[Rfam]
RNA sequence: GUUGCAAGACUGAGGCCAUAGCAGAAGCAUUCAUGUGUGGUCUGUCAGAUUCCAACAAAUCUGUGACUUAUGCU
Numbered sequence: 001g002u003u004g005c006a007a008g009a010c011u012g013a014g015g016c017c018a019u020a021g022c023a024g025a026a027g028c029a030u031u032c033a034u035g036u037g038u039g040g041u042c043u044g045u046c047a048g049a050u051u052c053c054a055a056c057a058a059a060u061c062u063g064u065g066a067c068u069u070a071u072g073c074u
Base pairs, nucleotide, nucleotide: 014042015041016040017039020074021073022072023071025069026068027038028037029036046063047062048061049060050059051058

The family of this 74-nucleotide sequence from Alligator mississippiensis is "Mammalian CPEB3 ribozyme".
Rfam 15.1 lists 5,706 matches to the family in 197 species.
NCBI's taxonomy places the organism under Eukaryota, Eumetazoa, Craniata, Dipnotetrapodomorpha, Alligator.
About the family: The mammalian CPEB3 ribozyme is a self cleaving RNA located in the second intron of the CPEB3 gene which belongs to a family of genes regulating messenger RNA polyadenylation.